[Rfam]
RNA sequence: UGCCUUUGUGUUGCCCAUUCAUUCCUGCCCAGAACGAAUGUGGUGUCAGAAAAGGCAAACAGGAACACUUGUCAGACUGUUUAAGGAGCUGGUUAUUUACCUCUCUCCUCCCUGUUUUUGCAAGGACAAAA
Number, nucleotide and partner (000 for none) at each position: 001u000002g056003c055004c054005u053006u052007u051008g000009u048010g047011u000012u045013g044014c043015c042016c040017a039018u038019u037020c036021a000022u034023u033024c000025c000026u000027g000028c000029c000030c000031a000032g000033a023034a022035c000036g020037a019038a018039u017040g016041u000042g015043g014044u013045g012046u000047c010048a009049g000050a000051a007052a006053a005054g004055g003056c002057a000058a000059a000060c000061a000062g000063g000064a000065a000066c000067a000068c124069u123070u122071g121072u000073c000074a117075g116076a115077c114078u000079g000080u000081u000082u000083a000084a113085g112086g111087a000088g108089c000090u000091g000092g103093u000094u000095a000096u000097u000098u000099a000100c000101c000102u000103c092104u000105c000106u000107c000108c088109u000110c000111c086112c085113u084114g077115u076116u075117u074118u000119u000120g000121c071122a070123a069124g068125g000126a000127c000128a000129a000130a000131a000
About this RNA
A member of the RNA family "Small nucleolar RNA SNORA13" from Rhynochetos jubatus, 131 nucleotides long. Rfam's curators write: ACA13 is a member of the H/ACA class of snoRNA that guide the sites of modification of uridines to pseudouridines. Lineage of the source: Eukaryota > Vertebrata > Dipnotetrapodomorpha > Archelosauria > Rhynochetos. The base pairs follow the family's consensus structure, which was predicted with CMfinder. Rfam links the family to the GO terms nucleolus and RNA processing.